RNA sequence: AAUUAUUGACGACCGGAAAUGGUUCCCGGCACACUUGUUUUACAAGUAUCUGGCAUGAUGGAUACACCGCCCAUUCAAUAAUU
Number, nucleotide and partner (000 for none) at each position: 001a083002a082003u081004u080005a079006u078007u077008g076009a000010c000011g030012a000013c029014c028015g027016g026017a000018a000019a000020u069021g068022g067023u066024u000025c000026c016027c015028g014029g013030c011031a000032c052033a047034c046035u045036u044037g000038u000039u000040u000041u000042a000043c000044a036045a035046g034047u033048a000049u000050c000051u000052g032053g000054c000055a000056u000057g075058a074059u073060g072061g071062a000063u000064a000065c000066a023067c022068c021069g020070c000071c061072c060073a059074u058075u057076c008077a007078a006079u005080a004081a003082u002083u001
Rfam assigns this 83-nucleotide sequence to the family "skipping-rope RNA".
Rfam's curators put it in the seed alignment.
The base pairs follow the family's consensus structure, which is taken from published work.
It is annotated as a small RNA.